[Rfam]
RNA: mir-317 microRNA precursor family
RNA sequence: AAUUUCGGCUACCGGGAUACACCCUGUGCUCGCUUUGCAUUCGAAACUAGUGAACACAGCUGGUGGUAUCUCAGUGGCCCUAAUCCG
Numbered sequence: 001a002a003u004u005u006c007g008g009c010u011a012c013c014g015g016g017a018u019a020c021a022c023c024c025u026g027u028g029c030u031c032g033c034u035u036u037g038c039a040u041u042c043g044a045a046a047c048u049a050g051u052g053a054a055c056a057c058a059g060c061u062g063g064u065g066g067u068a069u070c071u072c073a074g075u076g077g078c079c080c081u082a083a084u085c086c087g
Stems, first nucleotide, its partner, number of pairs: 008078005015072001016070002019067002021064003024059003028055001030053002